[Rfam]
RNA sequence: GGGUCAGCUUGUAGUUCAGCGGUUACUUCCUUGGUUUAACAGAAAAGUGUUUCUGAAAUCCUUCAGGGUUCAAAACCCAUGGGCGCUAUCUGACCUAGUC
Numbered sequence: 001g002g003g004u005c006a007g008c009u010u011g012u013a014g015u016u017c018a019g020c021g022g023u024u025a026c027u028u029c030c031u032u033g034g035u036u037u038a039a040c041a042g043a044a045a046a047g048u049g050u051u052u053c054u055g056a057a058a059u060c061c062u063u064c065a066g067g068g069u070u071c072a073a074a075a076c077c078c079a080u081g082g083g084c085g086c087u088a089u090c091u092g093a094c095c096u097a098g099u100c
Base pairs, nucleotide, nucleotide: 002095003094004093005092006091007090014084015083016082017081019080021078022077027074028073
Shown here is a 100-nucleotide RNA from Eleutherodactylus coqui, a member of the family "Vault RNA". A reference for the family is Stadler et al. (2009), "Evolution of Vault RNAs", Mol Biol Evol. This family of RNAs are found as part of the enigmatic vault ribonucleoprotein complex.